[Rfam]
RNA sequence: ACUUCCUGAGCCGGAACGAAAAGCAGUUUGAAAUUGAAGCGCUUGCGCGGGGAUUUUAGAAGGCUUUUGGCUUGUGGUCGUGAUGUUGUGUUUGCAAUUGAUCUGCCUUUUGCAGAUCGGGUAGUCCGACUACCGCUUUUAGAUUUACCCUGUCUGUCCAUAGAGAUUUAAUAGCACCGCAAAUUGCGGUGCUUUUUUUU
Numbered sequence: 001a002c003u004u005c006c007u008g009a010g011c012c013g014g015a016a017c018g019a020a021a022a023g024c025a026g027u028u029u030g031a032a033a034u035u036g037a038a039g040c041g042c043u044u045g046c047g048c049g050g051g052g053a054u055u056u057u058a059g060a061a062g063g064c065u066u067u068u069g070g071c072u073u074g075u076g077g078u079c080g081u082g083a084u085g086u087u088g089u090g091u092u093u094g095c096a097a098u099u100g101a102u103c104u105g106c107c108u109u110u111u112g113c114a115g116a117u118c119g120g121g122u123a124g125u126c127c128g129a130c131u132a133c134c135g136c137u138u139u140u141a142g143a144u145u146u147a148c149c150c151u152g153u154c155u156g157u158c159c160a161u162a163g164a165g166a167u168u169u170a171a172u173a174g175c176a177c178c179g180c181a182a183a184u185u186g187c188g189g190u191g192c193u194u195u196u197u198u199u200u
Stems, first nucleotide, its partner, number of pairs: 009072004015068002021066004027060008099119008120134006143172003173193008
The family of this 200-nucleotide RNA from Erwinia sp. 198 is "GcvB RNA". Gene Ontology terms of the family: mRNA binding and regulation of gene expression. Rfam classes the family as a non-coding RNA gene. The base pairs follow the family's consensus structure, which is taken from published work. The gcvB gene encodes a small untranslated RNA involved in expression of the dipeptide and oligopeptide transport systems in Escherichia coli.